[Rfam]
Shown here is a 61-nucleotide RNA sequence from Olea europaea, a member of the family "Plastid-psbN 5UTR RNA". The base pairs follow the family's consensus structure, which was predicted with LocARNA. Rfam's curators write: Plastid psbN is a non-coding RNA (ncRNA) recognised in plastids. It was reported as a conserved 11 stem-loop in the prime untranslated region (5UTR) of psbN genes. It has been reported that the motif is retained in a subset of mature transcripts in barley, which can suggests a possible role in transcript alternative 5 prime processing. The literature on the family includes a 2023 paper in Plant Commun by Richter et al., "Retrograde signaling in plants: A critical review focusing on the GUN pathway and beyond".
RNA sequence: AGGAACACCCAUUAAAGGAGUUGUUCCCCACCCGGGAGCUACUUUACUAUAUUCCGAAUUC
Numbered sequence: 001a002g003g004a005a006c007a008c009c010c011a012u013u014a015a016a017g018g019a020g021u022u023g024u025u026c027c028c029c030a031c032c033c034g035g036g037a038g039c040u041a042c043u044u045u046a047c048u049a050u051a052u053u054c055c056g057a058a059u060u061c
Stems, first nucleotide, its partner, number of pairs: 017045005023039005